[Rfam]
RNA sequence: GAAGUAGAUUUGAGGCCAUAGCAGAAGUGCUCACGGUGCGGCCAGAUCAGAUUCCAAUGAAUCUGCGAACUUUGCU
Numbered sequence: 001g002a003a004g005u006a007g008a009u010u011u012g013a014g015g016c017c018a019u020a021g022c023a024g025a026a027g028u029g030c031u032c033a034c035g036g037u038g039c040g041g042c043c044a045g046a047u048c049a050g051a052u053u054c055c056a057a058u059g060a061a062u063c064u065g066c067g068a069a070c071u072u073u074g075c076u
Stems, first nucleotide, its partner, number of pairs: 014043004020076006027039003048065007
RNA: Mammalian CPEB3 ribozyme